Manganese Mn2+ riboswitch aptamer (yybP-ykoY): a 166-nucleotide sequence from Legionella feeleii. This RNA was originally discovered in E. coli during a large scale screen and was named SraF. The family was later found to exist upstream of related families of protein genes in many bacteria, including the the yybP and ykoK genes in B. subtilis. Pairs were carried over by alignment from the consensus structure. The organism belongs to Legionella, within Bacteria.
RNA sequence: GCGCGGGUCAAUAGGGAGUAGCUGCACCUCAACCAGAGGUGGCUUACAUCAACAUCCUUGGUUACAAACCAUGGUGUAAGCAGCUUAGGCCUAGCAAGACUUUUGACUACCUAUCUUCUUGAAGCUGGUGAGAAGAUUAGUAGUCAUUCGUCUAUCACCAGCUGAG
Numbered sequence: 001g002c003g004c005g006g007g008u009c010a011a012u013a014g015g016g017a018g019u020a021g022c023u024g025c026a027c028c029u030c031a032a033c034c035a036g037a038g039g040u041g042g043c044u045u046a047c048a049u050c051a052a053c054a055u056c057c058u059u060g061g062u063u064a065c066a067a068a069c070c071a072u073g074g075u076g077u078a079a080g081c082a083g084c085u086u087a088g089g090c091c092u093a094g095c096a097a098g099a100c101u102u103u104u105g106a107c108u109a110c111c112u113a114u115c116u117u118c119u120u121g122a123a124g125c126u127g128g129u130g131a132g133a134a135g136a137u138u139a140g141u142a143g144u145c146a147u148u149c150g151u152c153u154a155u156c157a158c159c160a161g162c163u164g165a166g
Stems, first nucleotide, its partner, number of pairs: 026040003042081010059071005084166005